This 117-nucleotide sequence from Otus sunia belongs to the Rfam family "U11 spliceosomal RNA". The match comes from Rfam's covariance-model search (66 bits). Rfam links the family to the GO terms pre-mRNA 5'-splice site binding, U11 snRNP and mRNA 5'-splice site recognition.
[Rfam]
RNA sequence: AAAAACGGCUUCUGCUGUGCGUGGCAGAGGGGGCCCCCGCGGAAUUGAUAUCAAGAGAUUUCGGAAGCACAAUCUUUGUGAGGGGGGGUCGCUGGUAACCGCCAGUGCGGUGCCCCG
Numbered sequence: 001a002a003a004a005a006c007g008g009c010u011u012c013u014g015c016u017g018u019g020c021g022u023g024g025c026a027g028a029g030g031g032g033g034c035c036c037c038c039g040c041g042g043a044a045u046u047g048a049u050a051u052c053a054a055g056a057g058a059u060u061u062c063g064g065a066a067g068c069a070c071a072a073u074c075u076u077u078g079u080g081a082g083g084g085g086g087g088g089u090c091g092c093u094g095g096u097a098a099c100c101g102c103c104a105g106u107g108c109g110g111u112g113c114c115c116c117g
Base pairs, nucleotide, nucleotide: 008068009067010066011065012064013026014025015024016023017022029037030036031035040063041062042061043060044059045058046057086115087114088113089112091111092110093109094108098106099105